[Rfam]
RNA sequence: UAUUAGGUUGGUGCAAACAUAAUUGCAGUUUUUGCCAUUGUCAUUGAAAGUAAUGGCAAAAGCUGCAAUUAUGUUUGCACCAACCUAAUA
Numbered sequence: 001u002a003u004u005a006g007g008u009u010g011g012u013g014c015a016a017a018c019a020u021a022a023u024u025g026c027a028g029u030u031u032u033u034g035c036c037a038u039u040g041u042c043a044u045u046g047a048a049a050g051u052a053a054u055g056g057c058a059a060a061a062g063c064u065g066c067a068a069u070u071a072u073g074u075u076u077g078c079a080c081c082a083a084c085c086u087a088a089u090a
Stems, first nucleotide, its partner, number of pairs: 001090040

The record is a 90-nucleotide RNA from Cebus imitator, which matches "mir-548 microRNA precursor family" in Rfam. It scores 90 bits against the family's covariance model. Lineage of the source: Eukaryota > Deuterostomia > Theria > Simiiformes > Cebus. The family's consensus secondary structure was predicted with WAR.